[Rfam]
RNA: Eukaryotic small subunit ribosomal RNA, nucleotides 1277 to 1459
RNA sequence: AUGACACCCAUGAAUUGGGGAAUUUUUGGUCGUAGGCGAGGUCGGGUUCAUCUCGCUCCUCGCCUCGCCAAUGGAUAUCAAUUUACGUGCAUAUUCUUUUCGGUCCUCGCAAGGGGGCCUUUAACGGGAAUAUCCUCAGCACGUUAUCUGACUUCUUCACGCGAAAGCUUUGAGGUUACAGUC
Numbered sequence: 001a002u003g004a005c006a007c008c009c010a011u012g013a014a015u016u017g018g019g020g021a022a023u024u025u026u027u028g029g030u031c032g033u034a035g036g037c038g039a040g041g042u043c044g045g046g047u048u049c050a051u052c053u054c055g056c057u058c059c060u061c062g063c064c065u066c067g068c069c070a071a072u073g074g075a076u077a078u079c080a081a082u083u084u085a086c087g088u089g090c091a092u093a094u095u096c097u098u099u100u101c102g103g104u105c106c107u108c109g110c111a112a113g114g115g116g117g118c119c120u121u122u123a124a125c126g127g128g129a130a131u132a133u134c135c136u137c138a139g140c141a142c143g144u145u146a147u148c149u150g151a152c153u154u155c156u157u158c159a160c161g162c163g164a165a166a167g168c169u170u171u172g173a174g175g176u177u178a179c180a181g182u183c
Base pairs, nucleotide, nucleotide: 003183004182005181006176007175008174010144011143012142015139016138017137018136019135020134021133025130026129161168162167